[Rfam]
Description
The family of this 86-nucleotide sequence from Ruthenibacterium lactatiformans is "ZMP/ZTP riboswitch aptamer (pfl RNA motif)". NCBI's taxonomy places the organism under Bacteria, Clostridia, Eubacteriales, Oscillospiraceae, Ruthenibacterium.
RNA sequence: AGACGCGGCCGUAACUGACGGAACGAGUGGGCUUACCACAGGGGAACGGGCGCGGAGUUUUGAUGCCGGCCGUCUGGGCAACACCG
Numbered sequence: 001a002g003a004c005g006c007g008g009c010c011g012u013a014a015c016u017g018a019c020g021g022a023a024c025g026a027g028u029g030g031g032c033u034u035a036c037c038a039c040a041g042g043g044g045a046a047c048g049g050g051c052g053c054g055g056a057g058u059u060u061u062g063a064u065g066c067c068g069g070c071c072g073u074c075u076g077g078g079c080a081a082c083a084c085c086g
Base pairs, nucleotide, nucleotide: 004054005053006052007051009049010048011047012046015043016042017074018073019072020071021070027039028038029037030036064080065079066078067077